[Rfam]
RNA sequence: GGGCCGGAUAAGUGAAUGCUUUGCCACAGUCUUAGCGAACGAAUAAGCUGGGCUAAGAUUCACUUAGUCUGGAAC
Numbered sequence: 001g002g003g004c005c006g007g008a009u010a011a012g013u014g015a016a017u018g019c020u021u022u023g024c025c026a027c028a029g030u031c032u033u034a035g036c037g038a039a040c041g042a043a044u045a046a047g048c049u050g051g052g053c054u055a056a057g058a059u060u061c062a063c064u065u066a067g068u069c070u071g072g073a074a075c
Stems, first nucleotide, its partner, number of pairs: 004072003009066009019057003023053003027050003